This 68-nucleotide RNA from Chaetops frenatus belongs to the Rfam family "Small nucleolar RNA SNORD24".
It is annotated as a C/D-box small nucleolar RNA.
The organism belongs to Chaetops, within Eukaryota.

RNA sequence: UGCAGAUGAUGAUCACUUUUUACUGUGAAAAAAAAAAUGUGAUGACAACCACCAAGAUCGCUGAUGCA
Dot-bracket structure: ((((............................................................))))